Small nucleolar RNA SNORA11: a 131-nucleotide RNA from Otolemur garnettii. The source organism's lineage runs through Eukaryota, Craniata, Vertebrata, Boreoeutheria and Otolemur. On this family, see Gu et al., Nucleic Acids Res 2005: "A novel experimental approach for systematic identification of box H/ACA snoRNAs from eukaryotes".
RNA sequence: GGGGUGUGCUCAGAGCAGGGAGCUUAAAGAAUGGCUUCUCUGUUUACAACACACCCGACAGGAAUCUAGGGUCAUUGUGACAAAGGGUAGCACAAGACUUGUGGCCUCCUGUGAACAAAUGUCCUACAUGU
Numbered sequence: 001g002g003g004g005u006g007u008g009c010u011c012a013g014a015g016c017a018g019g020g021a022g023c024u025u026a027a028a029g030a031a032u033g034g035c036u037u038c039u040c041u042g043u044u045u046a047c048a049a050c051a052c053a054c055c056c057g058a059c060a061g062g063a064a065u066c067u068a069g070g071g072u073c074a075u076u077g078u079g080a081c082a083a084a085g086g087g088u089a090g091c092a093c094a095a096g097a098c099u100u101g102u103g104g105c106c107u108c109c110u111g112u113g114a115a116c117a118a119a120u121g122u123c124c125u126a127c128a129u130g131u
Base pairs, nucleotide, nucleotide: 002056003055004054005053006052007051008050013045014044015043016042017041018040019039020038021037022035023034024033069124070123071122072121076117077116078115081113082112084107085106086105091103092102093101094100095099